Background: MIR2619 microRNA precursor family: a 197-nucleotide RNA sequence from Medicago truncatula. The organism belongs to Medicago, within Eukaryota. A search with the family's covariance model found it, with a score of 159 bits. Gene Ontology terms of the family: miRNA-mediated post-transcriptional gene silencing and RISC complex.
RNA sequence: AAACAGCCCCCUAUGUAUUGGAUCUUUGGCAGUUUUGGCCCCGUCACUUUUGACUCAAUCUUCGCUGAUGUGGCACCCACAUCCCUUAAGUGAGGUGCCACAUGUCGACCAUUGUGGGUGCCACGUCAGCGAAGACUAAGUCAAAAGUGGUCUCGGGGGUCAAAACUGCCAAAGAACCAAUACAUAGGGGGCUGUUU
Number, nucleotide and partner (000 for none) at each position: 001a197002a196003a000004c194005a193006g192007c191008c190009c000010c000011c000012u186013a185014u184015g183016u182017a181018u180019u179020g178021g177022a000023u175024c174025u173026u172027u171028g170029g169030c168031a167032g166033u165034u164035u163036u162037g161038g160039c159040c158041c157042c156043g000044u000045c000046a000047c000048u000049u000050u000051u000052g000053a000054c000055u000056c000057a000058a000059u000060c000061u000062u000063c000064g000065c000066u000067g000068a126069u125070g000071u123072g122073g121074c120075a119076c118077c117078c116079a115080c114081a113082u000083c000084c000085c000086u000087u000088a000089a000090g000091u000092g000093a000094g000095g000096u000097g000098c000099c000100a000101c000102a000103u000104g000105u000106c000107g000108a000109c000110c000111a000112u000113u081114g080115u079116g078117g077118g076119u075120g074121c073122c072123a071124c000125g069126u068127c000128a000129g000130c000131g000132a000133a000134g000135a000136c000137u000138a000139a000140g000141u000142c000143a000144a000145a000146a000147g000148u000149g000150g000151u000152c000153u000154c000155g000156g042157g041158g040159g039160u038161c037162a036163a035164a034165a033166c032167u031168g030169c029170c028171a027172a026173a025174g024175a023176a000177c021178c020179a019180a018181u017182a016183c015184a014185u013186a012187g000188g000189g000190g008191g007192c006193u005194g004195u000196u002197u001